Record summary: The record is an 87-nucleotide RNA, which matches "mir-46/mir-47/mir-281 microRNA precursor family" in Rfam. The literature on the family includes a 2001 paper in Science by Lau et al., "An abundant class of tiny RNAs with probable regulatory roles in Caenorhabditis elegans". Pairs were carried over by alignment from the consensus structure, which was predicted with RNAalifold. The family has 57 seed sequences and 307 matches in Rfam 15.1. Its family is annotated with RISC complex and miRNA-mediated post-transcriptional gene silencing in the Gene Ontology.
RNA sequence: GCUGAGUGAAGCUGAAGAGAGCAGUCUAUGGACAGUUCGUUCUCGAACACCUACUGUCAUGGAGGCGCUCUCUUCAGAUGAUCCUAA
Numbered sequence: 001g002c003u004g005a006g007u008g009a010a011g012c013u014g015a016a017g018a019g020a021g022c023a024g025u026c027u028a029u030g031g032a033c034a035g036u037u038c039g040u041u042c043u044c045g046a047a048c049a050c051c052u053a054c055u056g057u058c059a060u061g062g063a064g065g066c067g068c069u070c071u072c073u074u075c076a077g078a079u080g081a082u083c084c085u086a087a
Stems, first nucleotide, its partner, number of pairs: 014075005020069003025063004031058003035054002